About this RNA
This 138-nucleotide sequence from Sparus aurata belongs to the Rfam family "Small nucleolar RNA SNORD10". The literature on the family includes a 2001 paper in EMBO J by Huttenhofer et al., "RNomics: an experimental approach that identifies 201 candidates for novel, small, non-messenger RNAs in mouse".
RNA sequence: UGUAUAAUGAUGAAACCCAUGCGUGUCAACUGACUCUGUAAACCCCUAUGUGUUGAUACUCUGGUUGGCGUUCUGUUAGCUUGAGCACUCAGCGCAAUAGGGGUCCAGAGGCAUGAUCUUAAAUCACUUCUGAAUACA
Numbered sequence: 001u002g003u004a005u006a007a008u009g010a011u012g013a014a015a016c017c018c019a020u021g022c023g024u025g026u027c028a029a030c031u032g033a034c035u036c037u038g039u040a041a042a043c044c045c046c047u048a049u050g051u052g053u054u055g056a057u058a059c060u061c062u063g064g065u066u067g068g069c070g071u072u073c074u075g076u077u078a079g080c081u082u083g084a085g086c087a088c089u090c091a092g093c094g095c096a097a098u099a100g101g102g103g104u105c106c107a108g109a110g111g112c113a114u115g116a117u118c119u120u121a122a123a124u125c126a127c128u129u130c131u132g133a134a135u136a137c138a
Stems, first nucleotide, its partner, number of pairs: 001138004044102005049096003
Dot-bracket structure: ((((.......................................((((((((..........................................))).)))))................................))))
The family's consensus secondary structure was predicted with WAR. Rfam classes the family as a C/D-box small nucleolar RNA. A search with the family's covariance model found it, with a score of 81 bits. NCBI's taxonomy places the organism under Eukaryota, Teleostomi, Neopterygii, Ctenosquamata, Sparus.